Record summary:
The record is a 286-nucleotide RNA from Paraburkholderia sediminicola, which matches "5' ureB small RNA" in Rfam. The family's consensus secondary structure was predicted with mfold. Rfam 15.1 lists 4,812 matches to the family in 4,480 species. Rfam links the family to the GO term negative regulation of gene expression. The literature on the family includes a 2013 paper in J Bacteriol by Wen et al., "Helicobacter pylori 5'ureB-sRNA, a cis-encoded antisense small RNA, negatively regulates ureAB expression by transcription termination". NCBI's taxonomy places the organism under Bacteria, Betaproteobacteria, Burkholderiales, Burkholderiaceae, Paraburkholderia.
RNA sequence: CUUCUUCGAUUUGCUGCGGGCUGAUGAAGUGAAUGUGCGUAUCGAUGCCGCCCGCCGUCACGAUCAGGCCUUCGCCGGCGAUCACUUCAGUGGACGCGCCGAUCGCGAUCGUCACGUUCGGUUGAAUGUCGGGAUUGCCCGCUUUGCCGAUCGCGGCGAUGCGGCCGUUCUUGAUGCCGAUGUCGGCCUUGACGAUGCCCCAGUGAUCGAGAAUCAGCGCGUUCGUCACGACGGUAUCGACCACGUCGGCAUGCACGCGUUGCGACUGGCCCAUGCCGUCGCGAAU
Numbered sequence: 001c002u003u004c005u006u007c008g009a010u011u012u013g014c015u016g017c018g019g020g021c022u023g024a025u026g027a028a029g030u031g032a033a034u035g036u037g038c039g040u041a042u043c044g045a046u047g048c049c050g051c052c053c054g055c056c057g058u059c060a061c062g063a064u065c066a067g068g069c070c071u072u073c074g075c076c077g078g079c080g081a082u083c084a085c086u087u088c089a090g091u092g093g094a095c096g097c098g099c100c101g102a103u104c105g106c107g108a109u110c111g112u113c114a115c116g117u118u119c120g121g122u123u124g125a126a127u128g129u130c131g132g133g134a135u136u137g138c139c140c141g142c143u144u145u146g147c148c149g150a151u152c153g154c155g156g157c158g159a160u161g162c163g164g165c166c167g168u169u170c171u172u173g174a175u176g177c178c179g180a181u182g183u184c185g186g187c188c189u190u191g192a193c194g195a196u197g198c199c200c201c202a203g204u205g206a207u208c209g210a211g212a213a214u215c216a217g218c219g220c221g222u223u224c225g226u227c228a229c230g231a232c233g234g235u236a237u238c239g240a241c242c243a244c245g246u247c248g249g250c251a252u253g254c255a256c257g258c259g260u261u262g263c264g265a266c267u268g269g270c271c272c273a274u275g276c277c278g279u280c281g282c283g284a285a286u
Stems, first nucleotide, its partner, number of pairs: 002285002005283001007281003011159007018076002023071001031052001034050002037048004057069003077148002081144001085141001090138003093130003099124001101123005107117001164270004170264001172262006186220002189217003200209001224253002230247002234244002